The family of this 168-nucleotide RNA sequence from Erwinia sp. Leaf53 is "sok antitoxin (CssrC)". Rfam describes the family as follows. Also identified in Shigella as CssrC. Pairs were carried over by alignment from the consensus structure, which is taken from published work. By type it is an antitoxin RNA. The literature on the family includes a 1988 paper in Gene by Loh et al., "Nucleotide sequence and transcriptional analysis of a third function (Flm) involved in F-plasmid maintenance". The source organism's lineage runs through Bacteria, Pseudomonadati, Enterobacterales, Erwiniaceae and Erwinia. Its family is annotated with mRNA binding in the Gene Ontology.
RNA sequence: CGGCGCUUGCGGCUUUUUGCCCGGGCGACGUGCAGAAAUGCUGAUUUGUCUGUGGCAUAAAGUAGAAAAGCCCCGAAGUUAAUUUUCAUUAACCCCGAGGCCUACCCUAUGCUUCACAACAUCAGGAUAGCCUCUUACCUGCCUCAAGGCAAGGAGAAGACGGUCAUG
Numbered sequence: 001c002g003g004c005g006c007u008u009g010c011g012g013c014u015u016u017u018u019g020c021c022c023g024g025g026c027g028a029c030g031u032g033c034a035g036a037a038a039u040g041c042u043g044a045u046u047u048g049u050c051u052g053u054g055g056c057a058u059a060a061a062g063u064a065g066a067a068a069a070g071c072c073c074c075g076a077a078g079u080u081a082a083u084u085u086u087c088a089u090u091a092a093c094c095c096c097g098a099g100g101c102c103u104a105c106c107c108u109a110u111g112c113u114u115c116a117c118a119a120c121a122u123c124a125g126g127a128u129a130g131c132c133u134c135u136u137a138c139c140u141g142c143c144u145c146a147a148g149g150c151a152a153g154g155a156g157a158a159g160a161c162g163g164u165c166a167u168g
Stems, first nucleotide, its partner, number of pairs: 002073002005071004012063005018057004075096001078093006097134005104128001106126002109122003139159002142156001